[Rfam]
RNA: Small nucleolar RNA ACA64
RNA sequence: UCAGACUGAAAAUGAUCUCAGAUGUAACAGUGGUCUGAGGUCAGUUAACUGAGCCUAAAGUAUGCUGGUGCAUUAAGCUUAUCUCCUGCUCAUCUGUUGGCAGAGCGAUAAAACCCAUGUUCCAACAAAA
Numbered sequence: 001u002c003a004g005a006c007u008g009a010a011a012a013u014g015a016u017c018u019c020a021g022a023u024g025u026a027a028c029a030g031u032g033g034u035c036u037g038a039g040g041u042c043a044g045u046u047a048a049c050u051g052a053g054c055c056u057a058a059a060g061u062a063u064g065c066u067g068g069u070g071c072a073u074u075a076a077g078c079u080u081a082u083c084u085c086c087u088g089c090u091c092a093u094c095u096g097u098u099g100g101c102a103g104a105g106c107g108a109u110a111a112a113a114c115c116c117a118u119g120u121u122c123c124a125a126c127a128a129a130a
Base pairs, nucleotide, nucleotide: 006051008049010046013043014042015041016040021035022034023033067123070120071119072118073117079111080110081109082108083107087102088101089100